RNA: Fluoride riboswitch aptamer (crcB RNA motif)
RNA sequence: UAAUACUUUGGGAAUGAGGUUCUCCCUUUGUGACAACACAAAAACCGCUUAUAAGCUGAUGACUUCUGCAUAUUU
Numbered sequence: 001u002a003a004u005a006c007u008u009u010g011g012g013a014a015u016g017a018g019g020u021u022c023u024c025c026c027u028u029u030g031u032g033a034c035a036a037c038a039c040a041a042a043a044a045c046c047g048c049u050u051a052u053a054a055g056c057u058g059a060u061g062a063c064u065u066c067u068g069c070a071u072a073u074u075u
Stems, first nucleotide, its partner, number of pairs: 010026004016066006047056003